RNA: mir-290 microRNA precursor family
Organism: Rattus norvegicus
RNA sequence: GUGAUACUCAAACUGUGUGACACUUUGUUUCUUUUGGAAGAAGUGCCGCAAAGUUUGCAGUGUUAC
Numbered sequence: 001g002u003g004a005u006a007c008u009c010a011a012a013c014u015g016u017g018u019g020a021c022a023c024u025u026u027g028u029u030u031c032u033u034u035u036g037g038a039a040g041a042a043g044u045g046c047c048g049c050a051a052a053g054u055u056u057g058c059a060g061u062g063u064u065a066c
Stems, first nucleotide, its partner, number of pairs: 004063005011056002016050004021045004025039002